[Rfam]
RNA sequence: ACUCCGUUUGAUCCUGGCGGAGGCCACUGCUAUGGGGGUCCGACUAAGCCAUGCAAGUCGAACGGGCCUUGUGCCCGUGGCGAACGGCUCAGUAACACGUGGACAACCUACCCUGGGGUCCGGGAUAACCCCGGGAAACUGGGGCUAAUCCCGGAUAGGCGAGGUCUCCUGGAAUGGGGCCUCGCCGAAAGGUCUUUUGACCGCCCCAGGAUGGGUCUGCGGCCGAUUAGGUAGUUGGUAGGGUAACGGCCUACCAAGCCUACGAUCGGUACGGGUUGUGAGAGCAAGAGCCCGGAGACGGGGCCUGAGACAAGGCCCCGGGCCCUACGGGGCGCAGCAGGCGCGAAAACUCCGCAAUGCGCGAAAGCGCGACGGGGGGACCCCCAGUGCCACUCCGUAAGGAGUGGCUUUUCCGGAGUGUAAAAAGCUCCGGGAAUAAGGGCUGGGCAAGACCGGUGCCAGCCGCCGCGGUAACACCGGCAGCCCGAGUGGUGGCCGCGUUUAUUG
Numbered sequence: 001a002c003u004c005c006g007u008u009u010g011a012u013c014c015u016g017g018c019g020g021a022g023g024c025c026a027c028u029g030c031u032a033u034g035g036g037g038g039u040c041c042g043a044c045u046a047a048g049c050c051a052u053g054c055a056a057g058u059c060g061a062a063c064g065g066g067c068c069u070u071g072u073g074c075c076c077g078u079g080g081c082g083a084a085c086g087g088c089u090c091a092g093u094a095a096c097a098c099g100u101g102g103a104c105a106a107c108c109u110a111c112c113c114u115g116g117g118g119u120c121c122g123g124g125a126u127a128a129c130c131c132c133g134g135g136a137a138a139c140u141g142g143g144g145c146u147a148a149u150c151c152c153g154g155a156u157a158g159g160c161g162a163g164g165u166c167u168c169c170u171g172g173a174a175u176g177g178g179g180c181c182u183c184g185c186c187g188a189a190a191g192g193u194c195u196u197u198u199g200a201c202c203g204c205c206c207c208a209g210g211a212u213g214g215g216u217c218u219g220c221g222g223c224c225g226a227u228u229a230g231g232u233a234g235u236u237g238g239u240a241g242g243g244u245a246a247c248g249g250c251c252u253a254c255c256a257a258g259c260c261u262a263c264g265a266u267c268g269g270u271a272c273g274g275g276u277u278g279u280g281a282g283a284g285c286a287a288g289a290g291c292c293c294g295g296a297g298a299c300g301g302g303g304c305c306u307g308a309g310a311c312a313a314g315g316c317c318c319c320g321g322g323c324c325c326u327a328c329g330g331g332g333c334g335c336a337g338c339a340g341g342c343g344c345g346a347a348a349a350c351u352c353c354g355c356a357a358u359g360c361g362c363g364a365a366a367g368c369g370c371g372a373c374g375g376g377g378g379g380a381c382c383c384c385c386a387g388u389g390c391c392a393c394u395c396c397g398u399a400a401g402g403a404g405u406g407g408c409u410u411u412u413c414c415g416g417a418g419u420g421u422a423a424a425a426a427g428c429u430c431c432g433g434g435a436a437u438a439a440g441g442g443c444u445g446g447g448c449a450a451g452a453c454c455g456g457u458g459c460c461a462g463c464c465g466c467c468g469c470g471g472u473a474a475c476a477c478c479g480g481c482a483g484c485c486c487g488a489g490u491g492g493u494g495g496c497c498g499c500g501u502u503u504a505u506u507g
Stems, first nucleotide, its partner, number of pairs: 004020005022497010033386009042344001048342003052339003057081003062078006088297003098221007107214002112210007120154004129144006159185008168177002192202001223269003230260003235257008272294004276287004299320006322333004350376001352375003358371005389408008413433007440486006453480004462469002
The family of this 507-nucleotide part of an RNA from Methanothermus fervidus is "Archaeal small subunit ribosomal RNA". Lineage of the source: Archaea > Methanobacteriota > Methanobacteriales > Methanothermaceae > Methanothermus. Its Rfam clan is "SSU clan". Gene Ontology terms of the family: ribosome and structural constituent of ribosome.